Small nucleolar RNA SNORD58: a 72-nucleotide RNA from Xenopus tropicalis. Taxonomically the source falls in Silurana (Eukaryota, Chordata, Anura, Pipoidea). A reference for the family is Galardi et al. (2002), "Purified box C/D snoRNPs are able to reproduce site-specific 2'-O-methylation of target RNA in vitro", Mol Cell Biol. By type it is a C/D-box small nucleolar RNA. Rfam describes the family as follows. snoRNA U58 is found in introns 1, 3 and 6 of the ribosomal protein RPL17 gene in humans. Gene Ontology terms of the family: nucleolus and RNA processing.
[Rfam]
RNA sequence: CUGCAAUGAUGUUGUUAUUCUUAGGAGACCUUCAGAUUUAUAGAUGAAAAGAAAUAAAGAAUUCUGAGCAGC
Numbered sequence: 001c002u003g004c005a006a007u008g009a010u011g012u013u014g015u016u017a018u019u020c021u022u023a024g025g026a027g028a029c030c031u032u033c034a035g036a037u038u039u040a041u042a043g044a045u046g047a048a049a050a051g052a053a054a055u056a057a058a059g060a061a062u063u064c065u066g067a068g069c070a071g072c
Stems, first nucleotide, its partner, number of pairs: 001071004